[Rfam]
A member of the RNA family "Fluoride riboswitch aptamer (crcB RNA motif)" from Kushneria sinocarnis, 81 nucleotides long. The organism belongs to Kushneria, within Bacteria. Pairs were carried over by alignment from the consensus structure, which is taken from published work.
RNA sequence: AAGGCUCCCGGAGAUGGCAUGCCUCCCGAGUGUGCUGGCACUCGAACCAUCACCUGCGUGAUUGAUGAUGCCUGCAGAGCA
Numbered sequence: 001a002a003g004g005c006u007c008c009c010g011g012a013g014a015u016g017g018c019a020u021g022c023c024u025c026c027c028g029a030g031u032g033u034g035c036u037g038g039c040a041c042u043c044g045a046a047c048c049a050u051c052a053c054c055u056g057c058g059u060g061a062u063u064g065a066u067g068a069u070g071c072c073u074g075c076a077g078a079g080c081a
Stems, first nucleotide, its partner, number of pairs: 010026004016072005049062004